This 170-nucleotide RNA sequence from Lachnoclostridium sp. An14 belongs to the Rfam family "Clostridiales-1 RNA". By type it is a small RNA. A search with the family's covariance model found it, with a score of 53 bits. The family has 194 seed sequences and 1,172 matches in Rfam 15.1.
[Rfam]
RNA sequence: AGAUACCAGGGGCAAAAGGCGGGAAAACGAACACAGACCUGCCUGCGGGAGAAUUUUAACCUUCUGCCCUGUCAAAACACAAAUGAAGAAACCGUUUGAAAGAAAAACGGGAGGAAUAUGAAUGUUUUUAAGGGCCGAAAACGCGCGCGGCGCGAAACGGUCCGGUAUCA
Numbered sequence: 001a002g003a004u005a006c007c008a009g010g011g012g013c014a015a016a017a018g019g020c021g022g023g024a025a026a027a028c029g030a031a032c033a034c035a036g037a038c039c040u041g042c043c044u045g046c047g048g049g050a051g052a053a054u055u056u057u058a059a060c061c062u063u064c065u066g067c068c069c070u071g072u073c074a075a076a077a078c079a080c081a082a083a084u085g086a087a088g089a090a091a092c093c094g095u096u097u098g099a100a101a102g103a104a105a106a107a108c109g110g111g112a113g114g115a116a117u118a119u120g121a122a123u124g125u126u127u128u129u130a131a132g133g134g135c136c137g138a139a140a141a142c143g144c145g146c147g148c149g150g151c152g153c154g155a156a157a158c159g160g161u162c163c164g165g166u167a168u169c170a
Stems, first nucleotide, its partner, number of pairs: 002169006010069004016063004022057004028051001034045003074128006083119003092110006132163006143153004